Shown here is a 48-nucleotide RNA from Brevundimonas goettingensis, a member of the family "chrB-b RNA". By type it is a cis-regulatory element.

[Rfam]
RNA sequence: UCGGGCACAUGCGGACGCCCGAUCAGACGGCUCCCGUCCAAGCGCCGC
Number, nucleotide and partner (000 for none) at each position: 001u022002c021003g020004g019005g018006c017007a000008c000009a000010u000011g048012c047013g046014g045015a000016c000017g006018c005019c004020c003021g002022a001023u000024c000025a000026g038027a037028c036029g035030g034031c000032u000033c000034c030035c029036g028037u027038c026039c000040a000041a000042g000043c000044g000045c014046c013047g012048c011